Rfam assigns this 118-nucleotide RNA sequence to the family "Plastid-psbA-1 3UTR RNA".
Rfam's curators write: Plastid psbA-1 is a non-coding RNA (ncRNA) present in plastids.
The base pairs follow the family's consensus structure, which was predicted with LocARNA.
A reference for the family is Richter et al. (2023), "Retrograde signaling in plants: A critical review focusing on the GUN pathway and beyond", Plant Commun.
It is one of the family's seed sequences.
[Rfam]
RNA sequence: UCGAAGCUCCAUCUAAAAAUGGAUAAGAUUUUGUUGUGAGUGUAUAUAUUUUUUUGAACUAUUUGAAAUAAAAGGAGCAAUAACCUCUUUCUUGUUCUAUCAAGAAGGCGUUAUUGUU
Numbered sequence: 001u002c003g004a005a006g007c008u009c010c011a012u013c014u015a016a017a018a019a020u021g022g023a024u025a026a027g028a029u030u031u032u033g034u035u036g037u038g039a040g041u042g043u044a045u046a047u048a049u050u051u052u053u054u055u056g057a058a059c060u061a062u063u064u065g066a067a068a069u070a071a072a073a074g075g076a077g078c079a080a081u082a083a084c085c086u087c088u089u090u091c092u093u094g095u096u097c098u099a100u101c102a103a104g105a106a107g108g109c110g111u112u113a114u115u116g117u118u
Stems, first nucleotide, its partner, number of pairs: 008023005076118008086108002090105004
Dot-bracket structure: .......(((((......)))))....................................................((((((((..((..((((........)))).))..))))))))